The family of this 102-nucleotide sequence from Clostridiaceae bacterium AF18-31LB is "ZMP/ZTP riboswitch aptamer (pfl RNA motif)".
The base pairs follow the family's consensus structure, which is taken from published work.
Lineage of the source: Bacteria > Bacillati > Bacillota > Eubacteriales > Clostridiaceae.
RNA sequence: CAGGAACUGCACGACUGGCGGAAAGCAGACUUCUGUCUGUGGUAGGGCGACCUACAGGAAGUGCAGCAUUACAUUAAACAGCCGACCGCCUGGGCGCAUGCA
Numbered sequence: 001c002a003g004g005a006a007c008u009g010c011a012c013g014a015c016u017g018g019c020g021g022a023a024a025g026c027a028g029a030c031u032u033c034u035g036u037c038u039g040u041g042g043u044a045g046g047g048c049g050a051c052c053u054a055c056a057g058g059a060a061g062u063g064c065a066g067c068a069u070u071a072c073a074u075u076a077a078a079c080a081g082c083c084g085a086c087c088g089c090c091u092g093g094g095c096g097c098a099u100g101c102a
Base pairs, nucleotide, nucleotide: 003070004069007066008065009064010063011062012061015058016057017090018089019088020087021086042055043054044053045052081095082094083093